[Rfam]
RNA sequence: GUAACGCCAGCUGGAGAGAGGUUGCUUAGACAACCCACCGAAGGGGCAAGCAGUCUAUGACUGUGUAACUCUCAGGUACAACGGACAGGGGGAGAGGC
Numbered sequence: 001g002u003a004a005c006g007c008c009a010g011c012u013g014g015a016g017a018g019a020g021g022u023u024g025c026u027u028a029g030a031c032a033a034c035c036c037a038c039c040g041a042a043g044g045g046g047c048a049a050g051c052a053g054u055c056u057a058u059g060a061c062u063g064u065g066u067a068a069c070u071c072u073c074a075g076g077u078a079c080a081a082c083g084g085a086c087a088g089g090g091g092g093a094g095a096g097g098c
Stems, first nucleotide, its partner, number of pairs: 007092002011088003020035004037077003040073002044071003050064004
Shown here is a 98-nucleotide RNA sequence from Pseudomonas sp. OIL-1, a member of the family "Glycine riboswitch aptamer". It scores 54 bits against the family's covariance model. Lineage of the source: Bacteria > Pseudomonadati > Gammaproteobacteria > Pseudomonadaceae > Pseudomonas.